A member of the RNA family "TPP riboswitch aptamer (THI element)" from Bacillus sp. OxB-1, 104 nucleotides long. It scores 67 bits against the family's covariance model.
[Rfam]
RNA sequence: GAAAACCACAAGGGGUGCCGAUCGGCUGAGAUUGGGCAUAGAGUUGUCCUGACCCUUUGAACCUGUAAGAUCAUUCUUACGUAGGGAUGUGGAUGGAAACUGGC
Numbered sequence: 001g002a003a004a005a006c007c008a009c010a011a012g013g014g015g016u017g018c019c020g021a022u023c024g025g026c027u028g029a030g031a032u033u034g035g036g037c038a039u040a041g042a043g044u045u046g047u048c049c050u051g052a053c054c055c056u057u058u059g060a061a062c063c064u065g066u067a068a069g070a071u072c073a074u075u076c077u078u079a080c081g082u083a084g085g086g087a088u089g090u091g092g093a094u095g096g097a098a099a100c101u102g103g104c
Base pairs, nucleotide, nucleotide: 006092007091008090009089010088011056012055013054014053017026018025019024034049035048036047037046062085063084064083065082066079067078068077069076